[Rfam]
RNA sequence: ACGUAGGGAAAGGAGGUGGUCCACGAGAUGAAGUACUCCAGGACUCUCGAGGUGGUCGCCGGCUGACUGCCGGCCCGACCGGACGGUCCGCCAAUCCCAGGCGACCACCGGGACCCGUGGGGGUGCGGCGUAGUCCACCGCACCAGCGCACCGAGCGCGACCCACGGGUUCUUUCAU
Numbered sequence: 001a002c003g004u005a006g007g008g009a010a011a012g013g014a015g016g017u018g019g020u021c022c023a024c025g026a027g028a029u030g031a032a033g034u035a036c037u038c039c040a041g042g043a044c045u046c047u048c049g050a051g052g053u054g055g056u057c058g059c060c061g062g063c064u065g066a067c068u069g070c071c072g073g074c075c076c077g078a079c080c081g082g083a084c085g086g087u088c089c090g091c092c093a094a095u096c097c098c099a100g101g102c103g104a105c106c107a108c109c110g111g112g113a114c115c116c117g118u119g120g121g122g123g124u125g126c127g128g129c130g131u132a133g134u135c136c137a138c139c140g141c142a143c144c145a146g147c148g149c150a151c152c153g154a155g156c157g158c159g160a161c162c163c164a165c166g167g168g169u170u171c172u173u174u175c176a177u
Base pairs, nucleotide, nucleotide: 015060016059017058018057019056020055061092062091063090065088066087067086069084072080110172111171112170113169114168115167116166117165118164119163120162121161123143124142125141126140127139128138

A member of the RNA family "Actinobacteria sRNA Ms_IGR-5" from Flavimobilis soli, 177 nucleotides long. A search with the family's covariance model found it, with a score of 55 bits. The pairing is the family consensus, mapped onto this sequence.